[Rfam]
RNA sequence: AGCUGAUGAUGAUUCUAUACUUGAUGUUACUGACCAGUGGUUAGCUAAAGAUAAUCGCCUGCUGCCUGAGUCU
Number, nucleotide and partner (000 for none) at each position: 001a073002g072003c000004u000005g000006a000007u000008g000009a000010u000011g000012a000013u000014u000015c000016u000017a000018u000019a000020c000021u000022u000023g000024a000025u000026g000027u000028u000029a000030c000031u000032g000033a000034c000035c000036a000037g000038u000039g000040g000041u000042u064043a063044g062045c061046u000047a000048a000049a000050g000051a000052u000053a000054a000055u000056c000057g000058c000059c000060u000061g045062c044063u043064g042065c000066c000067u000068g000069a000070g000071u000072c002073u001

Overview: Shown here is a 73-nucleotide RNA sequence, a member of the family "Small nucleolar RNA R43". Its family is annotated with RNA processing and nucleolus in the Gene Ontology. A reference for the family is Barneche et al. (2001), "Identification of 66 box C/D snoRNAs in Arabidopsis thaliana: extensive gene duplications generated multiple isoforms predicting new ribosomal RNA 2'-O-methylation sites", J Mol Biol. Rfam's curators put it in the seed alignment.